[Rfam]
RNA sequence: UUUUUAGUAUAAGUAUGUCCUAGCCAAUAUUUGGGAUAUAAUUAUGUUAAAA
Dot-bracket structure: .....(((((((.(((.(((((........).)))).))).)))))))....
Description:
The record is a 52-nucleotide sequence from Molossus molossus, which matches "mir-1302 microRNA precursor family" in Rfam. The organism belongs to Molossus, within Eukaryota. Rfam links the family to the GO terms miRNA-mediated post-transcriptional gene silencing and RISC complex. A reference for the family is Morin et al. (2008), "Application of massively parallel sequencing to microRNA profiling and discovery in human embryonic stem cells", Genome Res.